[Rfam]
Nucleotides: 081
Stems, first nucleotide, its partner, number of pairs: 012068002015065004023057010
Number, partner (000 for none) and nucleotide at each position: 001000c002000u003000c004000c005000a006000u007000g008000g009000u010000g011000a012068c013067c014000g015065u016064g017063g018062c019000u020000u021000u022000a023057g024056a025055u026054u027053g028052u029051u030050a031049c032048u033000g034000a035000g036000g037000c038000a039000a040000c041000a042000g043000c044000g045000c046000g047000u048032g049031g050030u051029a052028a053027c054026a055025g056024u057023c058000u059000a060000c061000a062018g063017c064016c065015a066000u067013g068012g069000u070000c071000g072000c073000c074000a075000a076000g077000g078000g079000c080000c081000a
The family of this 81-nucleotide sequence from Hemibagrus wyckioides is "mir-132 microRNA precursor family". The family has 50 seed sequences and 1,023 matches in Rfam 15.1. Taxonomically the source falls in Hemibagrus (Eukaryota, Euteleostomi, Otomorpha, Characiphysae). Pairs were carried over by alignment from the consensus structure, which was predicted with RNAalifold.